A member of the RNA family "Bacterial RNase P class A" from Pedobacter planticolens, 374 nucleotides long. A search with the family's covariance model found it, with a score of 263 bits. Rfam classes the family as a ribozyme.

RNA sequence: AAUACAAGCUGUUCUAUCGCUGUUCUGCGUAAGCGGAAGAGAGGAAAGUCCGGGCAACAUAGAGCAUCUCGCUUCCUAACGGGAAGGCGUUUAGGAUUGAAUACCUGAAUGACGGAAAGUGCCACAGAAAAUAUACCGCCCCAAUUUAUUGGAGUAAGGGUGAAAACGUGAGGUAAGAGCUCACGAACUCGUUAAGUGAUUAACGUUUUGGUAAACCCCGGGAGUUGAAAGACCAAAUAGGCUAACGUAUGUAGGGCUGCUCGUUCGAUGUUAGUGGGUAGGUCGUUAGAGAUAAACGGCGACGUUUAUAGUGGAUUAAUGAUAGAAGCCCAAUUUAUUGGGAACAGAACCCGGCUUAUAGGCUUGUAUUUUUU
Numbered sequence: 001a002a003u004a005c006a007a008g009c010u011g012u013u014c015u016a017u018c019g020c021u022g023u024u025c026u027g028c029g030u031a032a033g034c035g036g037a038a039g040a041g042a043g044g045a046a047a048g049u050c051c052g053g054g055c056a057a058c059a060u061a062g063a064g065c066a067u068c069u070c071g072c073u074u075c076c077u078a079a080c081g082g083g084a085a086g087g088c089g090u091u092u093a094g095g096a097u098u099g100a101a102u103a104c105c106u107g108a109a110u111g112a113c114g115g116a117a118a119g120u121g122c123c124a125c126a127g128a129a130a131a132u133a134u135a136c137c138g139c140c141c142c143a144a145u146u147u148a149u150u151g152g153a154g155u156a157a158g159g160g161u162g163a164a165a166a167c168g169u170g171a172g173g174u175a176a177g178a179g180c181u182c183a184c185g186a187a188c189u190c191g192u193u194a195a196g197u198g199a200u201u202a203a204c205g206u207u208u209u210g211g212u213a214a215a216c217c218c219c220g221g222g223a224g225u226u227g228a229a230a231g232a233c234c235a236a237a238u239a240g241g242c243u244a245a246c247g248u249a250u251g252u253a254g255g256g257c258u259g260c261u262c263g264u265u266c267g268a269u270g271u272u273a274g275u276g277g278g279u280a281g282g283u284c285g286u287u288a289g290a291g292a293u294a295a296a297c298g299g300c301g302a303c304g305u306u307u308a309u310a311g312u313g314g315a316u317u318a319a320u321g322a323u324a325g326a327a328g329c330c331c332a333a334u335u336u337a338u339u340g341g342g343a344a345c346a347g348a349a350c351c352c353g354g355c356u357u358a359u360a361g362g363c364u365u366g367u368a369u370u371u372u373u374u
Base pairs, nucleotide, nucleotide: 001370002369003368004367005366006365007364008363009362010361011359012327013326014325015324016323017322018321020041021040023038024037025036026035027034028033046357047356048355050354051353052352053351054350055227056226057225058224062262063261064260065259067223068222069221070220071219072086073085074084075083076082087113088111089110090109091108092107093106094105095104114218115217119216120215121212122211123210136159137158138155139154141152142151143150144149167185168184169183170182171181172180187207190205191204192203193202194201195200231284232283233282234281241275242274243273244272245271246270254266255265256264257263292309293308294307295306296305297304298303